The record is a 147-nucleotide RNA from Mizugakiibacter sediminis, which matches "t44 RNA" in Rfam.

RNA sequence: UGCGCAAGCACCUCAUUCCGCACACGCAUCGGCACCGUCUUCGGGGUGCCCCGCCACCCAAUCGGGAAGGUCGUCCGCUCGCCAGGCGAGAUCACGACGUCCGGAUUUGGCGACGGGGUCGAAGCCGGGGAUGCGUGGAGGUCCAAC
Numbered sequence: 001u002g003c004g005c006a007a008g009c010a011c012c013u014c015a016u017u018c019c020g021c022a023c024a025c026g027c028a029u030c031g032g033c034a035c036c037g038u039c040u041u042c043g044g045g046g047u048g049c050c051c052c053g054c055c056a057c058c059c060a061a062u063c064g065g066g067a068a069g070g071u072c073g074u075c076c077g078c079u080c081g082c083c084a085g086g087c088g089a090g091a092u093c094a095c096g097a098c099g100u101c102c103g104g105a106u107u108u109g110g111c112g113a114c115g116g117g118g119u120c121g122a123a124g125c126c127g128g129g130g131a132u133g134c135g136u137g138g139a140g141g142u143c144c145a146a147c
Stems, first nucleotide, its partner, number of pairs: 023137008035128003039124005048119005
Notes: Taxonomically the source falls in Mizugakiibacter (Bacteria, Pseudomonadota, Gammaproteobacteria, Lysobacterales).